[Rfam]
The record is an 87-nucleotide RNA from Gossypium raimondii, which matches "MIR7486 microRNA precursor family" in Rfam. The family's consensus secondary structure was predicted with RNAalifold. The organism belongs to Gossypium, within Eukaryota.
RNA sequence: CACAUCAACGCGCUUUGCUGACGUGGCAACAAAUUGCGUCCACGUAAUAGCGAUUUGUGUCCACGUCGGCAAAGCGCGCUGAUGUGG
Numbered sequence: 001c002a003c004a005u006c007a008a009c010g011c012g013c014u015u016u017g018c019u020g021a022c023g024u025g026g027c028a029a030c031a032a033a034u035u036g037c038g039u040c041c042a043c044g045u046a047a048u049a050g051c052g053a054u055u056u057g058u059g060u061c062c063a064c065g066u067c068g069g070c071a072a073a074g075c076g077c078g079c080u081g082a083u084g085u086g087g
Base pairs, nucleotide, nucleotide: 001086002085003084004083005082006081007080009078010077011076012075013074014073015072016071017070018069019068020067021066023064024063025062026061029058030057031056032055033054034053035052036051037050